[Rfam]
RNA sequence: ACUUCGGGGACCCGCGAUCUCCCCGUCAGGCGAUUUGCCCAAGCAUCGCGUUCUGAUCCUGUUCGGGAGGAACGCGCGCAUG
Numbered sequence: 001a002c003u004u005c006g007g008g009g010a011c012c013c014g015c016g017a018u019c020u021c022c023c024c025g026u027c028a029g030g031c032g033a034u035u036u037g038c039c040c041a042a043g044c045a046u047c048g049c050g051u052u053c054u055g056a057u058c059c060u061g062u063u064c065g066g067g068a069g070g071a072a073c074g075c076g077c078g079c080a081u082g
Stems, first nucleotide, its partner, number of pairs: 005025006048075006
RNA: chrB-a RNA